[Rfam]
RNA sequence: GGUUUACACCCAGUACCAAAAGGUACUACGUGAUUCUGACCUUCCAUUCAUGGUCGUGUCAAAACCUUUAUUCUUGGAAAGCUUGCGCGGGGAAUCCGGGUGAGCAAUA
Numbered sequence: 001g002g003u004u005u006a007c008a009c010c011c012a013g014u015a016c017c018a019a020a021a022g023g024u025a026c027u028a029c030g031u032g033a034u035u036c037u038g039a040c041c042u043u044c045c046a047u048u049c050a051u052g053g054u055c056g057u058g059u060c061a062a063a064a065c066c067u068u069u070a071u072u073c074u075u076g077g078a079a080a081g082c083u084u085g086c087g088c089g090g091g092g093a094a095u096c097c098g099g100g101u102g103a104g105c106a107a108u109a
Stems, first nucleotide, its partner, number of pairs: 006035001008031002012027002015024003037061004041056001044053002083107004088102002091097002
A member of the RNA family "SL2 RNA" from Teladorsagia circumcincta, 109 nucleotides long.
A search with the family's covariance model found it, with a score of 46 bits.
From the family's description: This family represents SL2 RNA. SL2 RNA is involved in trans splicing in lower eukaryotes.
For this family Rfam cites "trans splicing of polycistronic Caenorhabditis elegans pre-mRNAs: analysis of the SL2 RNA" (Evans and Blumenthal, Mol Cell Biol, 2000).